[Rfam]
RNA sequence: GAUGAAGCGAUGAGACAACGAAGGGGUCAUCUAUGCGUCAGUUCUAUUUAAAGUACUUUACCUCGACAGCGCGUUUGUCCUGGUUGGCUUGCCUGAGUGCGCCGCAGCGCUUAAAGAUGCUUGAUGAACUGAUGCAGUGGGAGUUGCAAGACUGACCUCUGAAUUGGGAAUUGCAGACAUCAUGUGUGACUGAGUAUUGGUGUUAAUCGCCGCGCCAGCAGGUAUUAUCUGCUGGCUUUUUUC
Numbered sequence: 001g002a003u004g005a006a007g008c009g010a011u012g013a014g015a016c017a018a019c020g021a022a023g024g025g026g027u028c029a030u031c032u033a034u035g036c037g038u039c040a041g042u043u044c045u046a047u048u049u050a051a052a053g054u055a056c057u058u059u060a061c062c063u064c065g066a067c068a069g070c071g072c073g074u075u076u077g078u079c080c081u082g083g084u085u086g087g088c089u090u091g092c093c094u095g096a097g098u099g100c101g102c103c104g105c106a107g108c109g110c111u112u113a114a115a116g117a118u119g120c121u122u123g124a125u126g127a128a129c130u131g132a133u134g135c136a137g138u139g140g141g142a143g144u145u146g147c148a149a150g151a152c153u154g155a156c157c158u159c160u161g162a163a164u165u166g167g168g169a170a171u172u173g174c175a176g177a178c179a180u181c182a183u184g185u186g187u188g189a190c191u192g193a194g195u196a197u198u199g200g201u202g203u204u205a206a207u208c209g210c211c212g213c214g215c216c217a218g219c220a221g222g223u224a225u226u227a228u229c230u231g232c233u234g235g236c237u238u239u240u241u242u243c
Base pairs, nucleotide, nucleotide: 001181002180003179004178007174008173009172010171011170030141031140032139033138034136035135036134037133038132039131040130041129042128043127044126047124048123052118064086065085066084067083068081069080071078090117094113095112096111098109099108100107158169159168214236215235216234217233218232219231220230221229
A member of the RNA family "SgrS RNA" from Citrobacter freundii, 243 nucleotides long. The family's RNA type in Rfam is antisense RNA. The literature on the family includes a 2007 paper in J Bacteriol by Vanderpool and Gottesman, "The novel transcription factor SgrR coordinates the response to glucose-phosphate stress". The family's consensus secondary structure was predicted with RNAalifold. Its family is annotated with negative regulation of translational initiation in response to stress, translation repressor activity and regulation of mRNA stability in the Gene Ontology. It scores 162 bits against the family's covariance model.